RNA sequence: UUUUAUUUUUUAUUUUACCAGACUAUUAUUUAUACACUAAAAAUAAAACACUGCAAAAAAGAGCUGAUCAGUUAGUCUCAGAAAUAGACG
Numbered sequence: 001u002u003u004u005a006u007u008u009u010u011u012a013u014u015u016u017a018c019c020a021g022a023c024u025a026u027u028a029u030u031u032a033u034a035c036a037c038u039a040a041a042a043a044u045a046a047a048a049c050a051c052u053g054c055a056a057a058a059a060a061g062a063g064c065u066g067a068u069c070a071g072u073u074a075g076u077c078u079c080a081g082a083a084a085u086a087g088a089c090g
Stems, first nucleotide, its partner, number of pairs: 012085005020078006026046006050072004
Rfam assigns this 90-nucleotide RNA sequence from Defluviitalea raffinosedens to the family "rpsL sRNA". NCBI's taxonomy places the organism under Bacteria, Bacillota, Clostridia, Defluviitaleaceae, Defluviitalea. A reference for the family is Meyer et al. (2009), "Identification of candidate structured RNAs in the marine organism 'Candidatus Pelagibacter ubique'", BMC Genomics.